[Rfam]
RNA sequence: CAAGCAUGAAUGCUGCUAUUUUCCGCUUCUUUUUUUACUUUAGCGCCUGACUCAGGAAGGCUUUCGCGCGUAAGAAAAGAAACGGAAAAAAGCGCUAAAGCCUCCCUAGUGGAGGCUUUUUUUUU
Numbered sequence: 001c002a003a004g005c006a007u008g009a010a011u012g013c014u015g016c017u018a019u020u021u022u023c024c025g026c027u028u029c030u031u032u033u034u035u036u037a038c039u040u041u042a043g044c045g046c047c048u049g050a051c052u053c054a055g056g057a058a059g060g061c062u063u064u065c066g067c068g069c070g071u072a073a074g075a076a077a078a079g080a081a082a083c084g085g086a087a088a089a090a091a092g093c094g095c096u097a098a099a100g101c102c103u104c105c106c107u108a109g110u111g112g113a114g115g116c117u118u119u120u121u122u123u124u125u
Stems, first nucleotide, its partner, number of pairs: 015093003020088006027081007035073004041054001055067001058064001097119009